Rfam assigns this 82-nucleotide sequence from Muntiacus reevesi to the family "Small nucleolar RNA SNORD86".
A reference for the family is Filippini et al. (2001), "U86, a novel snoRNA with an unprecedented gene organization in yeast", Biochem Biophys Res Commun.
Rfam links the family to the GO terms nucleolus and RNA processing.
The base pairs follow the family's consensus structure, which was predicted with RNAalifold.
NCBI's taxonomy places the organism under Eukaryota, Eumetazoa, Bilateria, Teleostomi, Muntiacus.
Rfam 15.1 lists 274 matches to the family in 139 species.
U86 belongs to the C/D family of snoRNAs. It is the human orthologue of Xenopus laevis U86 and has no identified RNA target.
[Rfam]
RNA sequence: AAUACAGUGAUGCCCUAGGACUCGAUGACCUACACAGGCCUCUGAUCAGGGGGUAAUAGCCAGUCCUGGUCUCUGAGUGAUU
Numbered sequence: 001a002a003u004a005c006a007g008u009g010a011u012g013c014c015c016u017a018g019g020a021c022u023c024g025a026u027g028a029c030c031u032a033c034a035c036a037g038g039c040c041u042c043u044g045a046u047c048a049g050g051g052g053g054u055a056a057u058a059g060c061c062a063g064u065c066c067u068g069g070u071c072u073c074u075g076a077g078u079g080a081u082u
Stems, first nucleotide, its partner, number of pairs: 001081001003079003009073002015069008023059001026056001028054004035049001037046001039044001
By type it is a C/D-box small nucleolar RNA.